[Rfam]
The family of this 54-nucleotide RNA from Cereibacter changlensis is "COG3860 RNA". Lineage of the source: Bacteria > Pseudomonadati > Alphaproteobacteria > Cereibacter > Cereibacter changlensis. Pairs were carried over by alignment from the consensus structure, which is taken from published work. The family's RNA type in Rfam is cis-regulatory element. It scores 54 bits against the family's covariance model.
RNA sequence: CGGCCGGCAGUUCACCGAGGCCUCGCUGUCCUGCGAGGGAAGCUAAACCUUCCA
Numbered sequence: 001c002g003g004c005c006g007g008c009a010g011u012u013c014a015c016c017g018a019g020g021c022c023u024c025g026c027u028g029u030c031c032u033g034c035g036a037g038g039g040a041a042g043c044u045a046a047a048c049c050u051u052c053c054a
Base pairs, nucleotide, nucleotide: 001017002016003015029040030039031038032037